Notes: This 139-nucleotide RNA from Candidatus Magnetomorum sp. HK-1 belongs to the Rfam family "Group II catalytic intron D1-D4-7". A search with the family's covariance model found it, with a score of 71 bits. Rfam 15.1 lists 1,296 matches to the family in 705 species. Pairs were carried over by alignment from the consensus structure.
[Rfam]
RNA sequence: CCUGGUAUGUUCCUAUCAGUCUCUACGCGGGCGUGCUUGCUACGCGCUGUGUAGUCGGUGCGAAGCCCCGCGGACAAUGUACCGAUGGUUUUAAUGGUAACAGGCGAACCAUUCGAAGAAUCCUAACUUCGAUAAGGGA
Numbered sequence: 001c002c003u004g005g006u007a008u009g010u011u012c013c014u015a016u017c018a019g020u021c022u023c024u025a026c027g028c029g030g031g032c033g034u035g036c037u038u039g040c041u042a043c044g045c046g047c048u049g050u051g052u053a054g055u056c057g058g059u060g061c062g063a064a065g066c067c068c069c070g071c072g073g074a075c076a077a078u079g080u081a082c083c084g085a086u087g088g089u090u091u092u093a094a095u096g097g098u099a100a101c102a103g104g105c106g107a108a109c110c111a112u113u114c115g116a117a118g119a120a121u122c123c124u125a126a127c128u129u130c131g132a133u134a135a136g137g138g139a
Stems, first nucleotide, its partner, number of pairs: 002019006027071005032062006039055005086111004095102002113132006

A reference for the family is Bonen and Vogel (2001), "The ins and outs of group II introns", Trends Genet. Gene Ontology term of the family: Group II intron splicing.